[Rfam]
RNA sequence: CCGAAUCCGUUGGGGUGCCCAUCCAGGGCUGAGAGGCGAAAGCCAACCCAUCGAACCUGAUCCGGUUAGCACCGGCGGAGGGAACGGAACGACGCGCCGG
Numbered sequence: 001c002c003g004a005a006u007c008c009g010u011u012g013g014g015g016u017g018c019c020c021a022u023c024c025a026g027g028g029c030u031g032a033g034a035g036g037c038g039a040a041a042g043c044c045a046a047c048c049c050a051u052c053g054a055a056c057c058u059g060a061u062c063c064g065g066u067u068a069g070c071a072c073c074g075g076c077g078g079a080g081g082g083a084a085c086g087g088a089a090c091g092a093c094g095c096g097c098c099g100g
Stems, first nucleotide, its partner, number of pairs: 006088005011050004017029004036043002056081003062075004
This 100-nucleotide RNA from Falsirhodobacter algicola belongs to the Rfam family "TPP riboswitch aptamer (THI element)". NCBI's taxonomy places the organism under Bacteria, Pseudomonadati, Rhodobacterales, Paracoccaceae, Falsirhodobacter.